The family of this 53-nucleotide RNA from Muraenolepis orangiensis is "UnaL2 LINE 3' element". Rfam 15.1 lists 493,311 matches to the family in 99 species. About the family: The eel long interspersed element (LINE) UnaL2 and its partner short interspersed element (SINE) share a conserved 3' tail containing a stem-loop that is critical for their retrotransposition. Presumably, the first step of retrotransposition is the recognition of their 3' tails by UnaL2-encoded reverse transcriptase. The solution structure of a 17-nucleotide RNA derived from the 3' tail of UnaL2 was determined by NMR. The match comes from Rfam's covariance-model search (63 bits). By type it is a cis-regulatory element.
Nucleotides: 053
Stems, first nucleotide, its partner, number of pairs: 012042001013040003019035006
Number, partner (000 for none) and nucleotide at each position: 001000a002000a003000u004000a005000c006000a007000c008000a009000c010000c011000u012042u013040g014039u015038a016000a017000g018000u019035c020034g021033c022032u023031u024030u025000g026000g027000a028000u029000a030024a031023a032022a033021g034020c035019g036000u037000c038015u039014g040013c041000c042012a043000a044000a045000u046000g047000g048000c049000c050000u051000a052000a053000a